A member of the RNA family "Archaeal large subunit ribosomal RNA" from Methanomassiliicoccales archaeon RumEn M2, 599 nucleotides of a longer RNA. The source organism's lineage runs through Archaea, Methanobacteriati, Thermoplasmatota, Thermoplasmata and Methanomassiliicoccales.
RNA sequence: AUGCUACGCCGCAUGGGGGAUGGUUCGGCUAGAGCGCUGAAGAAGGUCGUGUCAAGCAGCGAUAUGCGUCGGGUAGGUGCAUGAAGCCUAUGAUCCGACGAUGACCUAAUGGGACUUCCUAUUCUUCGGAAUGGUCAGUAAUGACAGGGAACGCGGGGGAUUGAAGCAUCUUAGUACCCGCAGGAAAAGAAAUCAACAGAGAUACCGUUAGUAAAGGCGAUCGAAAACGGUACAGGGCAAACCGAAUCCCUUGGUGAAAACCCGGGGAGGUGUGGUGUUGUGGACUCUUUUACUCCUGGCGCAAUAAUAUUCGAAAUGUGCUGGAAAGCACUGCCAUAGAGGGUGAUAGCCCCUUAGAAGAAGGAUUGCAUGGAGAUUUUAGAGUAUCCGGAGUAGCGUGCGUUGGAUAUCGCGCGUGAAUCAGGGAGGCAUUCGCUUCCAACCCUAAAUACGUCUCUAGUCCGAUAGUGCAGUAGUAGUGUGAACGAAAACUGAAAAGUACCCUUAACGGGAGGUUAAAAGACCUGAAACCAUGCGGUCAAAGAUUUAUAUAGCAUCAAAGGGAAGAAGCCAUAAAUGGUGGACCAGUGUUAUAUUGU
Dot-bracket structure: .......(((((((((.....(((..((((((((((.......(((((((........))).....((((((...(((.......)))......))))))...))))...(((....))).............((((....))))......((((((.....((....))......))))).).........((....))...(((((......(.....).....)))))..((((....(((........(((....)))..........))).........((((....((((.............(((...(.((((......)))))..(...).(((.......)))...)))............)))).....))))...........(((((((........)))))))......(((((.......)))))..)))).....)).)))))).))...............((....))....))................................).....))))))))).........(((((((((....((......((((....))))...)).)))))))))...
Numbered sequence: 001a002u003g004c005u006a007c008g009c010c011g012c013a014u015g016g017g018g019g020a021u022g023g024u025u026c027g028g029c030u031a032g033a034g035c036g037c038u039g040a041a042g043a044a045g046g047u048c049g050u051g052u053c054a055a056g057c058a059g060c061g062a063u064a065u066g067c068g069u070c071g072g073g074u075a076g077g078u079g080c081a082u083g084a085a086g087c088c089u090a091u092g093a094u095c096c097g098a099c100g101a102u103g104a105c106c107u108a109a110u111g112g113g114a115c116u117u118c119c120u121a122u123u124c125u126u127c128g129g130a131a132u133g134g135u136c137a138g139u140a141a142u143g144a145c146a147g148g149g150a151a152c153g154c155g156g157g158g159g160a161u162u163g164a165a166g167c168a169u170c171u172u173a174g175u176a177c178c179c180g181c182a183g184g185a186a187a188a189g190a191a192a193u194c195a196a197c198a199g200a201g202a203u204a205c206c207g208u209u210a211g212u213a214a215a216g217g218c219g220a221u222c223g224a225a226a227a228c229g230g231u232a233c234a235g236g237g238c239a240a241a242c243c244g245a246a247u248c249c250c251u252u253g254g255u256g257a258a259a260a261c262c263c264g265g266g267g268a269g270g271u272g273u274g275g276u277g278u279u280g281u282g283g284a285c286u287c288u289u290u291u292a293c294u295c296c297u298g299g300c301g302c303a304a305u306a307a308u309a310u311u312c313g314a315a316a317u318g319u320g321c322u323g324g325a326a327a328g329c330a331c332u333g334c335c336a337u338a339g340a341g342g343g344u345g346a347u348a349g350c351c352c353c354u355u356a357g358a359a360g361a362a363g364g365a366u367u368g369c370a371u372g373g374a375g376a377u378u379u380u381a382g383a384g385u386a387u388c389c390g391g392a393g394u395a396g397c398g399u400g401c402g403u404u405g406g407a408u409a410u411c412g413c414g415c416g417u418g419a420a421u422c423a424g425g426g427a428g429g430c431a432u433u434c435g436c437u438u439c440c441a442a443c444c445c446u447a448a449a450u451a452c453g454u455c456u457c458u459a460g461u462c463c464g465a466u467a468g469u470g471c472a473g474u475a476g477u478a479g480u481g482u483g484a485a486c487g488a489a490a491a492c493u494g495a496a497a498a499g500u501a502c503c504c505u506u507a508a509c510g511g512g513a514g515g516u517u518a519a520a521a522g523a524c525c526u527g528a529a530a531c532c533a534u535g536c537g538g539u540c541a542a543a544g545a546u547u548u549a550u551a552u553a554g555c556a557u558c559a560a561a562g563g564g565a566a567g568a569a570g571c572c573a574u575a576a577a578u579g580g581u582g583g584a585c586c587a588g589u590g591u592u593a594u595a596u597u598g599u
Stems, first nucleotide, its partner, number of pairs: 008539009022525001023492002027463002029460006035453002044107004048061003067100006076088003111120003134145004152183001153181005163170002193200002204231005215221001234446004242275003253262003285384004293375004310359003316332001318331004335339001341353003396417007424440005479486002549596009562586002570581004